[Rfam]
Glycine riboswitch aptamer: a 109-nucleotide sequence from Streptomyces sp. Ru87.
Lineage of the source: Bacteria > Bacillati > Actinomycetota > Streptomycetaceae > Streptomyces.
RNA sequence: CGAAUCCGCGCGGGAGAGUCCCCGGUCCGGCCGCCGUGCCGCGUCCCCGGGGCGCCGAAGGAGCAAGCCCUCCCUGGAAUCUCUCAGGCCCCGAUACCGCGCGGACGAG
Numbered sequence: 001c002g003a004a005u006c007c008g009c010g011c012g013g014g015a016g017a018g019u020c021c022c023c024g025g026u027c028c029g030g031c032c033g034c035c036g037u038g039c040c041g042c043g044u045c046c047c048c049g050g051g052g053c054g055c056c057g058a059a060g061g062a063g064c065a066a067g068c069c070c071u072c073c074c075u076g077g078a079a080u081c082u083c084u085c086a087g088g089c090c091c092c093g094a095u096a097c098c099g100c101g102c103g104g105a106c107g108a109g
Stems, first nucleotide, its partner, number of pairs: 006104008020052006054089003057085002061083003068076001
It scores 57 bits against the family's covariance model. About the family: This family represents the bacterial glycine riboswitch.